[Rfam]
A member of the RNA family "U12 minor spliceosomal RNA" from Aplysia californica, 150 nucleotides long. Its Rfam clan is "U2 clan". The base pairs follow the family's consensus structure. By type it is a spliceosomal small nuclear RNA. Gene Ontology terms of the family: pre-mRNA branch point binding, mRNA branch site recognition and U12 snRNP.
RNA sequence: AUGCCUUAAACUAAUGAGUAAGGAAAAUAACGAGCCCGGGUAACGACGGGCUCCCAGACUACCGUUCUGGAAGAAUUUCUACAGGGGCACAGGUCGCCCCCAUGGUGACCCACCUACUUCGUGGGAUGCCUGGGUUGAGUGAUCUGCCCU
Numbered sequence: 001a002u003g004c005c006u007u008a009a010a011c012u013a014a015u016g017a018g019u020a021a022g023g024a025a026a027a028u029a030a031c032g033a034g035c036c037c038g039g040g041u042a043a044c045g046a047c048g049g050g051c052u053c054c055c056a057g058a059c060u061a062c063c064g065u066u067c068u069g070g071a072a073g074a075a076u077u078u079c080u081a082c083a084g085g086g087g088c089a090c091a092g093g094u095c096g097c098c099c100c101c102a103u104g105g106u107g108a109c110c111c112a113c114c115u116a117c118u119u120c121g122u123g124g125g126a127u128g129c130c131u132g133g134g135u136u137g138a139g140u141g142a143u144c145u146g147c148c149c150u
Base pairs, nucleotide, nucleotide: 004023005022006021007020008019032053033052034051035050036049037048038047054070055069056068057067058066084150085149086148087147088146091145092144093143094142095141096140097139100134101133104130105129106128107127109125110124111123112122113121